[Rfam]
The record is a 360-nucleotide part of an RNA from Acidihalobacter ferrooxydans, which matches "Bacterial large subunit ribosomal RNA" in Rfam. Pairs were carried over by alignment from the consensus structure, which is taken from published work.
RNA sequence: UGAGAGAACUCGGGUAAAGGAACUAGGCAAAAUGGUACCGUAACUUCGGGAGAAGGUACGCCUCUGGUACGUGAUAGGCAUGCGCCUGGAGCGGAAAGAGGUCGCAGAGACCAGGCCGCUGCGACUGUUUACUAAAAACACAGCACUCUGCAAACACGAAAGUGGACGUAUAGGGUGUGACGCCUGCCCGGUGCCGGAAGGUUAAUUGAUGGGGUUAGCGUAAGCGAAGCUCUUGAUCGAAGCCCCGGUAAACGGCGGCCGUAACUAUAACGGUCCUAAGGUAGCGAAAUUCCUUGUCGGGUAAGUUCCGACCUGCACGAAUGGCGUAACGAUGGCGGCGCUGUCUCUACCCGAGACUCA
Numbered sequence: 001u002g003a004g005a006g007a008a009c010u011c012g013g014g015u016a017a018a019g020g021a022a023c024u025a026g027g028c029a030a031a032a033u034g035g036u037a038c039c040g041u042a043a044c045u046u047c048g049g050g051a052g053a054a055g056g057u058a059c060g061c062c063u064c065u066g067g068u069a070c071g072u073g074a075u076a077g078g079c080a081u082g083c084g085c086c087u088g089g090a091g092c093g094g095a096a097a098g099a100g101g102u103c104g105c106a107g108a109g110a111c112c113a114g115g116c117c118g119c120u121g122c123g124a125c126u127g128u129u130u131a132c133u134a135a136a137a138a139c140a141c142a143g144c145a146c147u148c149u150g151c152a153a154a155c156a157c158g159a160a161a162g163u164g165g166a167c168g169u170a171u172a173g174g175g176u177g178u179g180a181c182g183c184c185u186g187c188c189c190g191g192u193g194c195c196g197g198a199a200g201g202u203u204a205a206u207u208g209a210u211g212g213g214g215u216u217a218g219c220g221u222a223a224g225c226g227a228a229g230c231u232c233u234u235g236a237u238c239g240a241a242g243c244c245c246c247g248g249u250a251a252a253c254g255g256c257g258g259c260c261g262u263a264a265c266u267a268u269a270a271c272g273g274u275c276c277u278a279a280g281g282u283a284g285c286g287a288a289a290u291u292c293c294u295u296g297u298c299g300g301g302u303a304a305g306u307u308c309c310g311a312c313c314u315g316c317a318c319g320a321a322u323g324g325c326g327u328a329a330c331g332a333u334g335g336c337g338g339c340g341c342u343g344u345c346u347c348u349a350c351c352c353g354a355g356a357c358u359c360a
Stems, first nucleotide, its partner, number of pairs: 001360004009355008018346003035059005044049001060102006075088005103107001115339007122331002126140003143178008151168001155164003181326004186256003191253002193249005200244003211233005218225002257275006276280001286313001296312006